[Rfam]
RNA sequence: UGAGAUGGAAUCAUUGUUUGGAUAUGCGAUUUUACACCGAUUUCAUCUCAUG
Numbered sequence: 001u002g003a004g005a006u007g008g009a010a011u012c013a014u015u016g017u018u019u020g021g022a023u024a025u026g027c028g029a030u031u032u033u034a035c036a037c038c039g040a041u042u043u044c045a046u047c048u049c050a051u052g
Stems, first nucleotide, its partner, number of pairs: 001050012015036003018029003
The record is a 52-nucleotide RNA from Solanum tuberosum, which matches "MIR1886 microRNA precursor family" in Rfam. Rfam 15.1 lists 1,053 matches to the family in 6 species.